[Rfam]
RNA: c-di-AMP riboswitch aptamer (ydaO/yuaA leader)
Organism: Streptomyces nitrosporeus
RNA sequence: CCGGACGACUGGUCGACACGAGUGGAUCGGCAGGAGUGGAGGACCCGAGCAGAACGGGCCGGCCGGAUGUCCGGACGGUCCUUGGGGUGAAGCCGCCGUGUGCGGCCGGGCAACUUCGCCAGCCCGAACCCGACAGGUCAUCCUUCACAGGCGGCUGACGAAGGGUUG
Numbered sequence: 001c002c003g004g005a006c007g008a009c010u011g012g013u014c015g016a017c018a019c020g021a022g023u024g025g026a027u028c029g030g031c032a033g034g035a036g037u038g039g040a041g042g043a044c045c046c047g048a049g050c051a052g053a054a055c056g057g058g059c060c061g062g063c064c065g066g067a068u069g070u071c072c073g074g075a076c077g078g079u080c081c082u083u084g085g086g087g088u089g090a091a092g093c094c095g096c097c098g099u100g101u102g103c104g105g106c107c108g109g110g111c112a113a114c115u116u117c118g119c120c121a122g123c124c125c126g127a128a129c130c131c132g133a134c135a136g137g138u139c140a141u142c143c144u145u146c147a148c149a150g151g152c153g154g155c156u157g158a159c160g161a162a163g164g165g166u167u168g
Base pairs, nucleotide, nucleotide: 001034002033036148037147038146039145040144041143046084047083048082049081085131086130087129093105094104095103096102108125109124110123111122